The family of this 143-nucleotide RNA sequence from Bordetella petrii is "radC RNA". Rfam classes the family as a cis-regulatory element. Rfam 15.1 lists 500 matches to the family in 142 species.
[Rfam]
Nucleotides: 143
Base pairs, nucleotide, nucleotide: 011040012039013038014037019034020033021032022031023030024029044064045063046062047061048060049059051087052086053085054084067081068080069079070078071077114143115142116141122137123136124135125134126133
Number, partner (000 for none) and nucleotide at each position: 001000a002000g003000u004000c005000u006000u007000g008000c009000g010000g011040c012039a013038u014037g015000u016000g017000u018000u019034g020033c021032u022031g023030a024029u025000c026000c027000c028000g029024a030023u031022c032021a033020g034019c035000a036000c037014c038013a039012u040011g041000c042000c043000a044064g045063c046062a047061g048060c049059c050000a051087g052086g053085u054084c055000u056000u057000c058000a059049g060048g061047c062046u063045g064044c065000g066000c067081c068080g069079u070078g071077g072000a073000a074000c075000g076000a077071c078070c079069a080068c081067g082000u083000a084054g085053a086052c087051c088000g089000a090000u091000c092000c093000a094000g095000u096000c097000c098000g099000c100000u101000u102000c103000g104000c105000a106000u107000c108000g109000u110000u111000u112000u113000c114143g115142c116141g117000g118000a119000c120000g121000c122137a123136c124135g125134c126133c127000a128000c129000a130000g131000c132000c133126g134125g135124c136123g137122u138000c139000g140000a141116u142115g143114c